[Rfam]
A member of the RNA family "Bacterial RNase P class A" from Neotabrizicola shimadae, 427 nucleotides long. Its family is annotated with dimeric ribonuclease P complex, ribonuclease P activity and tRNA processing in the Gene Ontology. From the family's description: Ribonuclease P (RNase P) is a ubiquitous endoribonuclease, found in archaea, bacteria and eukarya as well as chloroplasts and mitochondria. It is annotated as a ribozyme. The base pairs follow the family's consensus structure, which is taken from published work.
RNA sequence: GCGGAUGGCCGGACGGCCGCGGGCCGAAAGGUUCGAGGAAAGUCCGGACUCCAUGAGGCAAGGGUGCCGGGUAACGCCCGGCGGGGGCAACCCCAGGGAAAGCGCCACAGAGAACAGACUGCCCCGGUGCCGCGACCCUAUCGCGGGGAAGCCGGGGUCAGGGUGAAACGGUGGGGUAAGAGCCCACCGCGGACCGGGCAACCGGGACGGCACGGCAAGCCCCACCCGGAGCAAUGCCGAAUAGGGGCCUCGCGCGGAAAGGUCCGGGCCAACAGCCGAAAGGCUGCCGGAGACCUCCGCAGGGACGUCUCAGCCCGGAGGCCCGGGUUGGCAGCUUGACCCCGCCGGUAACGGCGGUGGCAGAGGAAUGGUCGUCGAAGGGGGGCAACCCCCGGAACAGAAUCCGGCUUACAGGCCAUCCGCGCAU
Numbered sequence: 001g002c003g004g005a006u007g008g009c010c011g012g013a014c015g016g017c018c019g020c021g022g023g024c025c026g027a028a029a030g031g032u033u034c035g036a037g038g039a040a041a042g043u044c045c046g047g048a049c050u051c052c053a054u055g056a057g058g059c060a061a062g063g064g065u066g067c068c069g070g071g072u073a074a075c076g077c078c079c080g081g082c083g084g085g086g087g088c089a090a091c092c093c094c095a096g097g098g099a100a101a102g103c104g105c106c107a108c109a110g111a112g113a114a115c116a117g118a119c120u121g122c123c124c125c126g127g128u129g130c131c132g133c134g135a136c137c138c139u140a141u142c143g144c145g146g147g148g149a150a151g152c153c154g155g156g157g158u159c160a161g162g163g164u165g166a167a168a169c170g171g172u173g174g175g176g177u178a179a180g181a182g183c184c185c186a187c188c189g190c191g192g193a194c195c196g197g198g199c200a201a202c203c204g205g206g207a208c209g210g211c212a213c214g215g216c217a218a219g220c221c222c223c224a225c226c227c228g229g230a231g232c233a234a235u236g237c238c239g240a241a242u243a244g245g246g247g248c249c250u251c252g253c254g255c256g257g258a259a260a261g262g263u264c265c266g267g268g269c270c271a272a273c274a275g276c277c278g279a280a281a282g283g284c285u286g287c288c289g290g291a292g293a294c295c296u297c298c299g300c301a302g303g304g305a306c307g308u309c310u311c312a313g314c315c316c317g318g319a320g321g322c323c324c325g326g327g328u329u330g331g332c333a334g335c336u337u338g339a340c341c342c343c344g345c346c347g348g349u350a351a352c353g354g355c356g357g358u359g360g361c362a363g364a365g366g367a368a369u370g371g372u373c374g375u376c377g378a379a380g381g382g383g384g385g386c387a388a389c390c391c392c393c394g395g396a397a398c399a400g401a402a403u404c405c406g407g408c409u410u411a412c413a414g415g416c417c418a419u420c421c422g423c424g425c426a427u
Stems, first nucleotide, its partner, number of pairs: 001423010011412001012376007020035006040410003044407005049231004057311002060308001062227005067081005082096001083094004097222002102220002104216003119162002121158008170188006189211001190209002194205004235333004245324006302316003340359001342357006